[Rfam]
RNA: Small nucleolar RNA SNORD45
RNA sequence: GGUCAGUGAUGUAAUGGCAUGUAUUAGCUGAAUGAAUGUGAGUUCCAAUAUUACAUGUGAGUUCCAAUAUUACACUGAGACCUU
Dot-bracket structure: ((((..........................................................................))))..